[Rfam]
RNA sequence: GCUGAGCUCAGUAGCGCGAGCUUGUAACCCGAGCGGGGGCAACAAGGUGGUUGGACAUUAACUCGAUCCGACGGAUAGGGUCUGUUGAGGCUUGAUUUGGUUCGCCCGUUCCAAGUAAGGAGUUGGGCCACGCGACUCGGGUGAAGGCUCGGGUUUCAUGGUCCUUAGAGUGGAGGUCACCAGGUCAGGCUGGUUUCACAGAGCAGCGACAACCUCCCGCUCCCGUCGGUGGAAGGAUAACGAAUCGGUGCCUCGCUAUCCCACUGAUGCCUUAGGAGCCGAGUUUAAUCGGACGGCCGCCUUU
Numbered sequence: 001g002c003u004g005a006g007c008u009c010a011g012u013a014g015c016g017c018g019a020g021c022u023u024g025u026a027a028c029c030c031g032a033g034c035g036g037g038g039g040c041a042a043c044a045a046g047g048u049g050g051u052u053g054g055a056c057a058u059u060a061a062c063u064c065g066a067u068c069c070g071a072c073g074g075a076u077a078g079g080g081u082c083u084g085u086u087g088a089g090g091c092u093u094g095a096u097u098u099g100g101u102u103c104g105c106c107c108g109u110u111c112c113a114a115g116u117a118a119g120g121a122g123u124u125g126g127g128c129c130a131c132g133c134g135a136c137u138c139g140g141g142u143g144a145a146g147g148c149u150c151g152g153g154u155u156u157c158a159u160g161g162u163c164c165u166u167a168g169a170g171u172g173g174a175g176g177u178c179a180c181c182a183g184g185u186c187a188g189g190c191u192g193g194u195u196u197c198a199c200a201g202a203g204c205a206g207c208g209a210c211a212a213c214c215u216c217c218c219g220c221u222c223c224c225g226u227c228g229g230u231g232g233a234a235g236g237a238u239a240a241c242g243a244a245u246c247g248g249u250g251c252c253u254c255g256c257u258a259u260c261c262c263a264c265u266g267a268u269g270c271c272u273u274a275g276g277a278g279c280c281g282a283g284u285u286u287a288a289u290c291g292g293a294c295g296g297c298c299g300c301c302u303u304u
Base pairs, nucleotide, nucleotide: 001040002039003038004023005022006021007020008019009018028037029036030035044303045302046301047300048299049298050297051296052295053294056291058288059287060286061284062283063282064281065280067277068276069275071273074271076269077268078262079261080260084256085255087254088253089252090251092250097248098247099246100245101244102243103242104241106236107235109234110233111232112231113230115227119223120222121221122220123219125164126163127162128161129160130159132157134155135154136153137152138151139150140149141148142147165170172217173216174215175214176213177212184207185206190201191200192199